[Rfam]
Shown here is an 80-nucleotide RNA sequence from Amazona guildingii, a member of the family "mir-1791 microRNA precursor family".
Pairs were carried over by alignment from the consensus structure, which was predicted with RNAalifold.
It scores 81 bits against the family's covariance model.
RNA sequence: UGCACCAUUUUGGGCUGCAUCAGUCAUGCCAUGUUAUGAAACCUAACACGAUGUGACUGGUGCGGGAUGAUAUGAUGUAU
Numbered sequence: 001u002g003c004a005c006c007a008u009u010u011u012g013g014g015c016u017g018c019a020u021c022a023g024u025c026a027u028g029c030c031a032u033g034u035u036a037u038g039a040a041a042c043c044u045a046a047c048a049c050g051a052u053g054u055g056a057c058u059g060g061u062g063c064g065g066g067a068u069g070a071u072a073u074g075a076u077g078u079a080u
Base pairs, nucleotide, nucleotide: 002080004078005077006074007073008072010070011069012068015065016064017063018062019061020060021059022058023057024056025055026054027053028052030050032048033047034046035045036044